Bacterial RNase P class A: a 376-nucleotide sequence from Roseburia inulinivorans. It scores 292 bits against the family's covariance model. The source organism's lineage runs through Bacteria, Bacillota, Clostridia, Lachnospiraceae and Roseburia.
[Rfam]
RNA sequence: UAAGUAGGACAAAUGAUCGCGGCUGCAAGUGUCGAAAGACCGCAGGUGAGGAAAGUCCGGGCUUCACAGGGCAGAAUGCCGGAUAACGUCCGGUGGAGGCGACUCCAAGGAAAGUGCAACAGAAAUAUACCGCCGAUUCUGGCUUGACCAGAAUCUGGUAAGGGUGGAAGGGCAGUGUAAGAGACUACCGCCUUUCUGGUAACAGGAGGGGCAUAUGUAAACCCCAUUCGAAGCAAGACCGAACAAAAGCGUUGACGUGGCCCGCCAGCUUUAGGUAGGUCGCUUGAAAUGGCUGGUAACAGUCAUUCUAGAAAGAUGAUCAUUCGUGUCUGCGUUUGCAGACGGACAUAACCCGGCUUAUCGUCCUGCUUAUUUU
Numbered sequence: 001u002a003a004g005u006a007g008g009a010c011a012a013a014u015g016a017u018c019g020c021g022g023c024u025g026c027a028a029g030u031g032u033c034g035a036a037a038g039a040c041c042g043c044a045g046g047u048g049a050g051g052a053a054a055g056u057c058c059g060g061g062c063u064u065c066a067c068a069g070g071g072c073a074g075a076a077u078g079c080c081g082g083a084u085a086a087c088g089u090c091c092g093g094u095g096g097a098g099g100c101g102a103c104u105c106c107a108a109g110g111a112a113a114g115u116g117c118a119a120c121a122g123a124a125a126u127a128u129a130c131c132g133c134c135g136a137u138u139c140u141g142g143c144u145u146g147a148c149c150a151g152a153a154u155c156u157g158g159u160a161a162g163g164g165u166g167g168a169a170g171g172g173c174a175g176u177g178u179a180a181g182a183g184a185c186u187a188c189c190g191c192c193u194u195u196c197u198g199g200u201a202a203c204a205g206g207a208g209g210g211g212c213a214u215a216u217g218u219a220a221a222c223c224c225c226a227u228u229c230g231a232a233g234c235a236a237g238a239c240c241g242a243a244c245a246a247a248a249g250c251g252u253u254g255a256c257g258u259g260g261c262c263c264g265c266c267a268g269c270u271u272u273a274g275g276u277a278g279g280u281c282g283c284u285u286g287a288a289a290u291g292g293c294u295g296g297u298a299a300c301a302g303u304c305a306u307u308c309u310a311g312a313a314a315g316a317u318g319a320u321c322a323u324u325c326g327u328g329u330c331u332g333c334g335u336u337u338g339c340a341g342a343c344g345g346a347c348a349u350a351a352c353c354c355g356g357c358u359u360a361u362c363g364u365c366c367u368g369c370u371u372a373u374u375u376u
Stems, first nucleotide, its partner, number of pairs: 001372010011361001012324007020048002023045004053359003057356005062233004069262002072259001074229005079093005094108001095106004109224002114222002116218003130163002132159003136154007171189002174186003190212001191210008237281004246272005254266001256264002288307008